[Rfam]
L17-Actino-Proteobacteria ribosomal protein leader: a 58-nucleotide RNA from Azohydromonas caseinilytica.
RNA sequence: AGGGCCGCCUUGGCGGGCGGCCCGGUGCACCCCCCGGUACCUGACACGGCCGGGGGUU
Numbered sequence: 001a002g003g004g005c006c007g008c009c010u011u012g013g014c015g016g017g018c019g020g021c022c023c024g025g026u027g028c029a030c031c032c033c034c035c036g037g038u039a040c041c042u043g044a045c046a047c048g049g050c051c052g053g054g055g056g057u058u
Base pairs, nucleotide, nucleotide: 002023003022004021005020006019007018008017009016029057030056032055033054034053035052036051037050038049
It scores 44 bits against the family's covariance model. The family's RNA type in Rfam is cis-regulatory leader. Taxonomically the source falls in Azohydromonas (Bacteria, Pseudomonadati, Pseudomonadota, Burkholderiales).